Record summary
The family of this 190-nucleotide sequence from Paenibacillus sp. J31TS4 is "Lysine riboswitch aptamer". NCBI's taxonomy places the organism under Bacteria, Bacillati, Caryophanales, Paenibacillaceae, Paenibacillus.

Nucleotides: 190
Base pairs, nucleotide, nucleotide: 006185007184008183009182010181011180017081018080019079020078021077022076023075024074025073031067032066033065034064035063038060085115086114087113088112089111090110091109092108093107116143117142120139121138122137123136125134126133146174147173148172149171150170151169
Number, partner (000 for none) and nucleotide at each position: 001000c002000g003000g004000u005000g006185a007184g008183g009182u010181a011180g012000a013000g014000g015000u016000c017081g018080c019079g020078g021077c022076u023075g024074c025073c026000a027000g028000a029000g030000a031067a032066u033065c034064c035063g036000g037000a038060g039000g040000a041000g042000g043000c044000c045000c046000a047000g048000a049000g050000a051000g052000g053000c054000c055000g056000g057000c058000g059000a060038u061000g062000a063035c064034g065033g066032g067031u068000g069000a070000c071000g072000g073025g074024g075023c076022a077021g078020c079019c080018g081017c082000c083000g084000a085115a086114g087113a088112c089111c090110g091109g092108c093107c094000c095000g096000c097000g098000u099000c100000u101000c102000u103000g104000c105000g106000c107093g108092g109091c110090c111089g112088g113087u114086c115085u116143g117142g118000g119000g120139c121138c122137g123136u124000a125134u126133c127000c128000g129000g130000a131000c132000a133126g134125g135000a136123a137122c138121g139120g140000a141000a142117c143116u144000g145000u146174c147173a148172c149171g150170c151169c152000c153000u154000g155000g156000c157000g158000u159000a160000u161000c162000c163000c164000u165000c166000g167000c168000c169151g170150g171149c172148g173147u174146g175000u176000u177000g178000a179000g180011c181010u182009a183008u184007c185006u186000u187000c188000a189000a190000a